Rfam assigns this 338-nucleotide RNA sequence from Rhodobacteraceae bacterium HIMB11 to the family "Alphaproteobacteria transfer-messenger RNA". Gene Ontology term of the family: RNA catabolic process. It scores 285 bits against the family's covariance model. Its Rfam clan is "tRNA clan". Rfam classes the family as a non-coding RNA gene.
RNA sequence: CCCCUUCACAUCCCUAUGGAUCAGACAUAUGUUCACUGUGUCCUUAGGGACUAUGGACAUAAACGCGCGCGUAAUAAGCGGAUCGGACCCGGGGGCGGUACCCGGCAGCUCCACCAAAACCACACGGGGCUGAAAUAGGAUCGACGAACGUCUAAAGGUGUUAGCUUUGUCUCGGCUGUCUGCCACCGUUAUCGGCGAAAACUGUACAAUUGCAAAUGACAAUCGUGCUCCAGUAGCAAUGGCUGCGUAAGCGGUCGGAGAUACUGAAAUCUAAAGCCCUAGGGUCAAGCAACGCUAGGCGGGGUUACGGAGGUUCCUGGCAACAGAAUACCUCCACU
Numbered sequence: 001c002c003c004c005u006u007c008a009c010a011u012c013c014c015u016a017u018g019g020a021u022c023a024g025a026c027a028u029a030u031g032u033u034c035a036c037u038g039u040g041u042c043c044u045u046a047g048g049g050a051c052u053a054u055g056g057a058c059a060u061a062a063a064c065g066c067g068c069g070c071g072u073a074a075u076a077a078g079c080g081g082a083u084c085g086g087a088c089c090c091g092g093g094g095g096c097g098g099u100a101c102c103c104g105g106c107a108g109c110u111c112c113a114c115c116a117a118a119a120c121c122a123c124a125c126g127g128g129g130c131u132g133a134a135a136u137a138g139g140a141u142c143g144a145c146g147a148a149c150g151u152c153u154a155a156a157g158g159u160g161u162u163a164g165c166u167u168u169g170u171c172u173c174g175g176c177u178g179u180c181u182g183c184c185a186c187c188g189u190u191a192u193c194g195g196c197g198a199a200a201a202c203u204g205u206a207c208a209a210u211u212g213c214a215a216a217u218g219a220c221a222a223u224c225g226u227g228c229u230c231c232a233g234u235a236g237c238a239a240u241g242g243c244u245g246c247g248u249a250a251g252c253g254g255u256c257g258g259a260g261a262u263a264c265u266g267a268a269a270u271c272u273a274a275a276g277c278c279c280u281a282g283g284g285u286c287a288a289g290c291a292a293c294g295c296u297a298g299g300c301g302g303g304g305u306u307a308c309g310g311a312g313g314u315u316c317c318u319g320g321c322a323a324c325a326g327a328a329u330a331c332c333u334c335c336a337c338u
Stems, first nucleotide, its partner, number of pairs: 040051004055172005065165002067161004079150002083147003089105005106132007173188003179198002182196003302318003309335006